Description: Shown here is a 174-nucleotide RNA sequence, a member of the family "Group II catalytic intron D1-D4-3".
RNA sequence: UUCAUGGUGACAUGAAAUCUGAAGGAAGCCCUAGACAAAAUCUCGGUCUGAGGUACACGAAUCACAUUCGAGGUUCUUAUUUUAGGAUGAGUCUGCAUAACAAGAUAAAGUCCAAAAUAUCUCUAGAUAAAAUAGGAAUAAAUGUGGCAGACAAAUGAGAUGAAAGUGGAUGAA
Numbered sequence: 001u002u003c004a005u006g007g008u009g010a011c012a013u014g015a016a017a018u019c020u021g022a023a024g025g026a027a028g029c030c031c032u033a034g035a036c037a038a039a040a041u042c043u044c045g046g047u048c049u050g051a052g053g054u055a056c057a058c059g060a061a062u063c064a065c066a067u068u069c070g071a072g073g074u075u076c077u078u079a080u081u082u083u084a085g086g087a088u089g090a091g092u093c094u095g096c097a098u099a100a101c102a103a104g105a106u107a108a109a110g111u112c113c114a115a116a117a118u119a120u121c122u123c124u125a126g127a128u129a130a131a132a133u134a135g136g137a138a139u140a141a142a143u144g145u146g147g148c149a150g151a152c153a154a155a156u157g158a159g160a161u162g163a164a165a166g167u168g169g170a171u172g173a174a
Stems, first nucleotide, its partner, number of pairs: 001016006030172001032170001035167002040161006046152005062147006073139003077135007085113004091106004
A search with the family's covariance model found it, with a score of 142 bits.